[Rfam]
RNA sequence: CCUUUGGAGUACUAAUAUAAACGAUAGUAGCUUGUCUUAUAAGACAGCGAGAGCGAGUACAAUGAAUAAGGAA
Number, nucleotide and partner (000 for none) at each position: 001c071002c070003u069004u068005u000006g000007g000008a000009g060010u059011a058012c057013u056014a000015a000016u000017a000018u000019a000020a000021a000022c055023g054024a000025u000026a000027g000028u000029a000030g048031c047032u046033u000034g000035u000036c000037u000038u000039a000040u000041a000042a000043g000044a000045c000046a032047g031048c030049g000050a000051g000052a000053g000054c023055g022056a013057g012058u011059a010060c009061a000062a000063u000064g000065a000066a000067u000068a004069a003070g002071g001072a000073a000
This 73-nucleotide RNA belongs to the Rfam family "RAGATH-18 RNA". Actinobacteria, Firmicutes, Fusobacteria, Thermotogae (1 example).